[Rfam]
RNA sequence: CCAAUGGAUGGCUAGGGUUCCGAUCGCAUCAAUAUUCACCCCAGAUGCGAUGACUGGUCCGAGAGCCAUCGACCCGGCGCCUAUCAGGCGCAAGGUUACACGGCGGGGGAAAAGCCCGGGAGGA
Numbered sequence: 001c002c003a004a005u006g007g008a009u010g011g012c013u014a015g016g017g018u019u020c021c022g023a024u025c026g027c028a029u030c031a032a033u034a035u036u037c038a039c040c041c042c043a044g045a046u047g048c049g050a051u052g053a054c055u056g057g058u059c060c061g062a063g064a065g066c067c068a069u070c071g072a073c074c075c076g077g078c079g080c081c082u083a084u085c086a087g088g089c090g091c092a093a094g095g096u097u098a099c100a101c102g103g104c105g106g107g108g109g110a111a112a113a114g115c116c117c118g119g120g121a122g123g124a
Stems, first nucleotide, its partner, number of pairs: 007070006015060002020057002022054001023051008071097004077091004099119001101122001105117003
RNA: Guanidine-I riboswitch aptamer
Organism: Halomonas sp. PA5